[Rfam]
RNA sequence: UGGUAGAUGCACCCUGGUUAAGCCCUAGAAUCAAAUCUGGGGCAUUUUUUA
Numbered sequence: 001u002g003g004u005a006g007a008u009g010c011a012c013c014c015u016g017g018u019u020a021a022g023c024c025c026u027a028g029a030a031u032c033a034a035a036u037c038u039g040g041g042g043c044a045u046u047u048u049u050u051a
Stems, first nucleotide, its partner, number of pairs: 002013003022043008
RNA: Nitrogen stress-induced RNA 1